Background: The family of this 72-nucleotide RNA sequence from Acanthisitta chloris is "Small nucleolar RNA SNORD34". The source organism's lineage runs through Eukaryota, Teleostomi, Sarcopterygii, Archosauria and Acanthisitta. On this family, see Chen et al., Nucleic Acids Res 2003: "The high diversity of snoRNAs in plants: identification and comparative study of 120 snoRNA genes from Oryza sativa". Rfam describes the family as follows. snoRNA U34 is found in intron 5 of the ribosomal protein L13a gene in humans. A search with the family's covariance model found it, with a score of 47 bits.
[Rfam]
RNA sequence: CAUUGUCAAUGAUGUCGUUUUUACCUACAUUGUUCGAUGCACCCUGAGAGAAACUGAAACACUGAGACUUUG
Numbered sequence: 001c002a003u004u005g006u007c008a009a010u011g012a013u014g015u016c017g018u019u020u021u022u023a024c025c026u027a028c029a030u031u032g033u034u035c036g037a038u039g040c041a042c043c044c045u046g047a048g049a050g051a052a053a054c055u056g057a058a059a060c061a062c063u064g065a066g067a068c069u070u071u072g
Base pairs, nucleotide, nucleotide: 001072002071005068006067007066